[Rfam]
RNA: transfer-messenger RNA
Organism: Bacteroidota bacterium
RNA sequence: GGGGCCGCCCGGUUUUGACAGCAUGAUCUUUGAACGUGUAAGCAUGUCGUGCGUUGGAUAAUUAGCACGUUAAUCUGAAUAUUCAAACCAUAAAUGGCGAAACUUCUUUCGCUAUGGCUGCCUAAUUCAUUUUAGGUUUCCAUACUGGCCGUUCAUUUCGGGUAGGUUUGUAACCCACGUUGAGCCGCCUUCACCAGAGAAUACGAACUGUUGUCUGAACAGGCUGUGAAGCAGACAAAAGACUUAUCCAGCUAAGGAAGAUAUAGGUUUGUUCUUGUCCGGCAUCUUCCCAACAAGCAAUCAGGAAAUAAGCAUGUAGAAAGCGUUUGCAGAAUGUGUUUGGACGCGGGUUCGAUUCCCGCCGGCUCCACAA
Numbered sequence: 001g002g003g004g005c006c007g008c009c010c011g012g013u014u015u016u017g018a019c020a021g022c023a024u025g026a027u028c029u030u031u032g033a034a035c036g037u038g039u040a041a042g043c044a045u046g047u048c049g050u051g052c053g054u055u056g057g058a059u060a061a062u063u064a065g066c067a068c069g070u071u072a073a074u075c076u077g078a079a080u081a082u083u084c085a086a087a088c089c090a091u092a093a094a095u096g097g098c099g100a101a102a103c104u105u106c107u108u109u110c111g112c113u114a115u116g117g118c119u120g121c122c123u124a125a126u127u128c129a130u131u132u133u134a135g136g137u138u139u140c141c142a143u144a145c146u147g148g149c150c151g152u153u154c155a156u157u158u159c160g161g162g163u164a165g166g167u168u169u170g171u172a173a174c175c176c177a178c179g180u181u182g183a184g185c186c187g188c189c190u191u192c193a194c195c196a197g198a199g200a201a202u203a204c205g206a207a208c209u210g211u212u213g214u215c216u217g218a219a220c221a222g223g224c225u226g227u228g229a230a231g232c233a234g235a236c237a238a239a240a241g242a243c244u245u246a247u248c249c250a251g252c253u254a255a256g257g258a259a260g261a262u263a264u265a266g267g268u269u270u271g272u273u274c275u276u277g278u279c280c281g282g283c284a285u286c287u288u289c290c291c292a293a294c295a296a297g298c299a300a301u302c303a304g305g306a307a308a309u310a311a312g313c314a315u316g317u318a319g320a321a322a323g324c325g326u327u328u329g330c331a332g333a334a335u336g337u338g339u340u341u342g343g344a345c346g347c348g349g350g351u352u353c354g355a356u357u358c359c360c361g362c363c364g365g366c367u368c369c370a371c372a373a
Stems, first nucleotide, its partner, number of pairs: 001369007019342002021339005027333001031329004037325003043316005048069005055085006115142003120137005147189003151185001154182002157179001160176003166208007211238007222253005256290007264282001266280002272307006346362005